[Rfam]
Rfam assigns this 76-nucleotide RNA from a Desulfobacteraceae bacterium to the family "c-di-GMP-I-GGC riboswitch aptamer". Rfam links the family to the GO term cyclic-di-GMP binding. Its Rfam clan is "c-di-GMP_I riboswitch clan". Taxonomically the source falls in Desulfobacteraceae (Bacteria, Thermodesulfobacteriota, Desulfobacteria, Desulfobacterales). It scores 65 bits against the family's covariance model.
RNA sequence: AAAGAUAAAGCCAAAUCCCGAGUGAUCGGGAGACGGAAAGCCACGGAUCUAAAUUUAGAUGGCCGGGUUGCCUUGA
Numbered sequence: 001a002a003a004g005a006u007a008a009a010g011c012c013a014a015a016u017c018c019c020g021a022g023u024g025a026u027c028g029g030g031a032g033a034c035g036g037a038a039a040g041c042c043a044c045g046g047a048u049c050u051a052a053a054u055u056u057a058g059a060u061g062g063c064c065g066g067g068u069u070g071c072c073u074u075g076a
Base pairs, nucleotide, nucleotide: 003073004072011036012035016031017030018029019028020027021026034062039069040068041067042066044065045064046063047060048059049058